RNA sequence: CAUUUUCUUCGUUAGGUGAGGCUUCUACAUAGACAGAUGCCACUGCCCGGAAAUGUCGAGAGACUCUAACGGGUUAACAGGUAUUACCGGAUUAAGGUUUUACCUAAUGUGGCUGGGACAUUCCCAAUGCCCUAGCUAUGUAUGUGCUAAAGCUUGUACGAGUGGGGAGGCCA
Numbered sequence: 001c002a003u004u005u006u007c008u009u010c011g012u013u014a015g016g017u018g019a020g021g022c023u024u025c026u027a028c029a030u031a032g033a034c035a036g037a038u039g040c041c042a043c044u045g046c047c048c049g050g051a052a053a054u055g056u057c058g059a060g061a062g063a064c065u066c067u068a069a070c071g072g073g074u075u076a077a078c079a080g081g082u083a084u085u086a087c088c089g090g091a092u093u094a095a096g097g098u099u100u101u102a103c104c105u106a107a108u109g110u111g112g113c114u115g116g117g118a119c120a121u122u123c124c125c126a127a128u129g130c131c132c133u134a135g136c137u138a139u140g141u142a143u144g145u146g147c148u149a150a151a152g153c154u155u156g157u158a159c160g161a162g163u164g165g166g167g168a169g170g171c172c173a
Base pairs, nucleotide, nucleotide: 005169006168007167008166009165010164011159012158013095015154016153017152020148021147022146025144026142027141028140029139030138031137032136039113040112041111042110043109045074046073047072048071049070055064056063057062080104081103082102083101086098087097088096115132116131117130

Description
The family of this 173-nucleotide RNA from Desulforamulus reducens is "M-box riboswitch aptamer (ykoK leader)". M-box riboswitch, also know as ykoK leader is described as a metaloregulatory RNA that sense divalent metals and function as a genetic control element of genes related to divalent metal transport in bacteria. It was first reported upstream of the B.subtilis ykoK gene and genes with related functions in other bacteria.